[Rfam]
RNA sequence: AGAUGGGUUAGAAUCCUCUGCAGUACUGUACGGUGCUGUACAGUUACUGUCAUGUGGGACCUGGUCCCACAUGUCAUCGACACUAUAGCACCAUAUGGUACUGCAGAGGAUUUCAACCCC
Number, nucleotide and partner (000 for none) at each position: 001a000002g000003a000004u000005g119006g118007g117008u116009u115010a000011g113012a112013a111014u110015c109016c108017u107018c106019u105020g104021c103022a102023g101024u100025a099026c098027u097028g096029u095030a094031c000032g092033g091034u090035g089036c088037u087038g086039u085040a084041c000042a000043g000044u000045u000046a000047c000048u000049g000050u000051c073052a072053u071054g070055u069056g068057g067058g066059a065060c064061c000062u000063g000064g060065u059066c058067c057068c056069a055070c054071a053072u052073g051074u000075c000076a000077u000078c000079g000080a000081c000082a000083c000084u040085a039086u038087a037088g036089c035090a034091c033092c032093a000094u030095a029096u028097g027098g026099u025100a024101c023102u022103g021104c020105a019106g018107a017108g016109g015110a014111u013112u012113u011114c000115a009116a008117c007118c006119c005120c000
A member of the RNA family "MIR5084 microRNA precursor family" from Triticum turgidum, 120 nucleotides long. Rfam links the family to the GO terms RISC complex and miRNA-mediated post-transcriptional gene silencing. The match comes from Rfam's covariance-model search (113 bits). Rfam 15.1 lists 152 matches to the family in 5 species.